RNA sequence: UUGUGUUACGUGAAGAAUUGAUCAUAGAAGCCAACAAAACGCCUAGUUGCUCUGUCAACUAUAAAACAACCAGAUUUUCAAAUCAAAAUGCUUUUGGAAAAGUCCCCAGACCCUAGAACAGAAAGUGUUGCCCGUUAAGGUUAUGAUCAAGUUUUAGUUCACUCGACAGAGAAGGUAUAAGAUUCAAGUUUAAGUAUUUGUGCUCUCUACCCGAGUCAUUGGUGAAAUUACUUGGUCACUGGUCACAGUAAAAGUAAUAUGAAAUUAAGAAUUUUAAAUAAAUAUUCUCUACAAAAUGGGGCUUACUCUCAACGUACACC
Numbered sequence: 001u002u003g004u005g006u007u008a009c010g011u012g013a014a015g016a017a018u019u020g021a022u023c024a025u026a027g028a029a030g031c032c033a034a035c036a037a038a039a040c041g042c043c044u045a046g047u048u049g050c051u052c053u054g055u056c057a058a059c060u061a062u063a064a065a066a067c068a069a070c071c072a073g074a075u076u077u078u079c080a081a082a083u084c085a086a087a088a089u090g091c092u093u094u095u096g097g098a099a100a101a102g103u104c105c106c107c108a109g110a111c112c113c114u115a116g117a118a119c120a121g122a123a124a125g126u127g128u129u130g131c132c133c134g135u136u137a138a139g140g141u142u143a144u145g146a147u148c149a150a151g152u153u154u155u156a157g158u159u160c161a162c163u164c165g166a167c168a169g170a171g172a173a174g175g176u177a178u179a180a181g182a183u184u185c186a187a188g189u190u191u192a193a194g195u196a197u198u199u200g201u202g203c204u205c206u207c208u209a210c211c212c213g214a215g216u217c218a219u220u221g222g223u224g225a226a227a228u229u230a231c232u233u234g235g236u237c238a239c240u241g242g243u244c245a246c247a248g249u250a251a252a253a254g255u256a257a258u259a260u261g262a263a264a265u266u267a268a269g270a271a272u273u274u275u276a277a278a279u280a281a282a283u284a285u286u287c288u289c290u291a292c293a294a295a296a297u298g299g300g301g302c303u304u305a306c307u308c309u310c311a312a313c314g315u316a317c318a319c320c
Base pairs, nucleotide, nucleotide: 003319004318005317006316009314010313011311012310013309016266017265018264019263021260022259025096026095027094028093029092030091031090041075043073044072046070047069048068049067100304101303102302104301105300106299107298117129118128119127120126133140143236144235151231152230155227160224161223162222163221165217166216167215174211175210176209177208268288269287270286271285272284

Background:
The record is a 320-nucleotide RNA from Tieghemostelium lacteum, which matches "RNase MRP" in Rfam. The match comes from Rfam's covariance-model search (77 bits). The literature on the family includes a 1993 paper in FASEB J by Schmitt et al., "Secondary structure of RNase MRP RNA as predicted by phylogenetic comparison". Gene Ontology terms of the family: ribonuclease MRP complex, ribonuclease MRP activity and rRNA processing.